[Rfam]
RNA sequence: GUGAUACUCAAACUGGGGGCUCUUUUGUUUUCUCAGAAGGAAAGUGCCGCCAGGUUUUGAGUGUUAC
Numbered sequence: 001g002u003g004a005u006a007c008u009c010a011a012a013c014u015g016g017g018g019g020c021u022c023u024u025u026u027g028u029u030u031u032c033u034c035a036g037a038a039g040g041a042a043a044g045u046g047c048c049g050c051c052a053g054g055u056u057u058u059g060a061g062u063g064u065u066a067c
Base pairs, nucleotide, nucleotide: 004064005063006062007061008060009059010058011057012056013053014052015051016050018048019047020046022044023043025042026041
Overview: The record is a 67-nucleotide RNA from Mesocricetus auratus, which matches "mir-290 microRNA precursor family" in Rfam. Pairs were carried over by alignment from the consensus structure, which was predicted with RNAalifold. A search with the family's covariance model found it, with a score of 65 bits. NCBI's taxonomy places the organism under Eukaryota, Deuterostomia, Tetrapoda, Eutheria, Mesocricetus. Rfam 15.1 lists 565 matches to the family in 128 species. Gene Ontology terms of the family: miRNA-mediated post-transcriptional gene silencing and RISC complex.